The family of this 170-nucleotide RNA from Massilimicrobiota sp. An134 is "Lysine riboswitch aptamer". Pairs were carried over by alignment from the consensus structure, which is taken from published work. Its family is annotated with lysine biosynthetic process in the Gene Ontology.

[Rfam]
RNA sequence: AAAAAAGAUAGAGGUGCAAGAGUUAAGAGUUCUUUUAUCAAUAGAUGCAACUAAAAAGAAGGAGGAACGAUUGCCGAAGGGAUAAUUAUUUGCAUGUGAUUAUUGCCUGGGGGUAUAGAGAAUAUCUAUAUCACUGUCACUUUGUAAUGAAGUGGUGUGCUAUUGCCUUA
Numbered sequence: 001a002a003a004a005a006a007g008a009u010a011g012a013g014g015u016g017c018a019a020g021a022g023u024u025a026a027g028a029g030u031u032c033u034u035u036u037a038u039c040a041a042u043a044g045a046u047g048c049a050a051c052u053a054a055a056a057a058g059a060a061g062g063a064g065g066a067a068c069g070a071u072u073g074c075c076g077a078a079g080g081g082a083u084a085a086u087u088a089u090u091u092g093c094a095u096g097u098g099a100u101u102a103u104u105g106c107c108u109g110g111g112g113g114u115a116u117a118g119a120g121a122a123u124a125u126c127u128a129u130a131u132c133a134c135u136g137u138c139a140c141u142u143u144g145u146a147a148u149g150a151a152g153u154g155g156u157g158u159g160c161u162a163u164u165g166c167c168u169u170a
Base pairs, nucleotide, nucleotide: 007164008163009162010161011160016074017073018072019071022068023067024066032061033060034059035058036057038055078108079107080106081104082103083102084101085100086099087098088097109135110134112132113131114130115129116128117127118126119125137155138154139153140152141151142150143149